[Rfam]
RNA sequence: GUCGGCUCCUCGCGUGGUGCCAUCCAGGUGAACUCCCCCAGGGCGGAGACGCAGCAAGGGCAGCCGGGCUCUGGCAGGUGCGCGAGGGGUCUUCUCC
Numbered sequence: 001g002u003c004g005g006c007u008c009c010u011c012g013c014g015u016g017g018u019g020c021c022a023u024c025c026a027g028g029u030g031a032a033c034u035c036c037c038c039c040a041g042g043g044c045g046g047a048g049a050c051g052c053a054g055c056a057a058g059g060g061c062a063g064c065c066g067g068g069c070u071c072u073g074g075c076a077g078g079u080g081c082g083c084g085a086g087g088g089g090u091c092u093u094c095u096c097c
Stems, first nucleotide, its partner, number of pairs: 004091011015078001018076005024068002027065003035060003043052003
Bacterial small signal recognition particle RNA: a 97-nucleotide sequence from Clavibacter michiganensis. Pairs were carried over by alignment from the consensus structure, which is taken from published work. The source organism's lineage runs through Bacteria, Bacillati, Micrococcales, Microbacteriaceae and Clavibacter michiganensis. The signal recognition particle (SRP) is a universally conserved ribonucleoprotein involved in the co-translational targeting of proteins to membranes. Rfam classes the family as a non-coding RNA gene.